[Rfam]
RNA sequence: UUCAAAAGGAGAUCAACCCCAAAAGGUUGAUUCUCAUGGGUGUUUGAACCACUCGGCGUAAACAGGUGGGAAAUUCGGUGGUACACUCCGUCCAACUUCUAAUUUACUCUUGAGAGUAUCCAGGCGAGGAAAUUGCCGGGCUGUGGCCAUAAGAAAUUAAGCCCAGGGGGGAUUUCCCUCCUGGACAUGGGAGCGCUACACAGGACGGUUGGCUAGUUUGAGCUGGCUAUUGAGUGCAAUAUACAGAUCAUCACCUCGGUGGUGGAACGCGAUACCGAUUACUUCUUGGA
Numbered sequence: 001u002u003c004a005a006a007a008g009g010a011g012a013u014c015a016a017c018c019c020c021a022a023a024a025g026g027u028u029g030a031u032u033c034u035c036a037u038g039g040g041u042g043u044u045u046g047a048a049c050c051a052c053u054c055g056g057c058g059u060a061a062a063c064a065g066g067u068g069g070g071a072a073a074u075u076c077g078g079u080g081g082u083a084c085a086c087u088c089c090g091u092c093c094a095a096c097u098u099c100u101a102a103u104u105u106a107c108u109c110u111u112g113a114g115a116g117u118a119u120c121c122a123g124g125c126g127a128g129g130a131a132a133u134u135g136c137c138g139g140g141c142u143g144u145g146g147c148c149a150u151a152a153g154a155a156a157u158u159a160a161g162c163c164c165a166g167g168g169g170g171g172a173u174u175u176c177c178c179u180c181c182u183g184g185a186c187a188u189g190g191g192a193g194c195g196c197u198a199c200a201c202a203g204g205a206c207g208g209u210u211g212g213c214u215a216g217u218u219u220g221a222g223c224u225g226g227c228u229a230u231u232g233a234g235u236g237c238a239a240u241a242u243a244c245a246g247a248u249c250a251u252c253a254c255c256u257c258g259g260u261g262g263u264g265g266a267a268c269g270c271g272a273u274a275c276c277g278a279u280u281a282c283u284u285c286u287u288g289g290a
Stems, first nucleotide, its partner, number of pairs: 007287003013246001025067001027065003038054005043048001076277005090206004105118005120140002123137005142200006161186001163184001248265007
RNA: Nuclear RNase P
Organism: Williopsis jadinii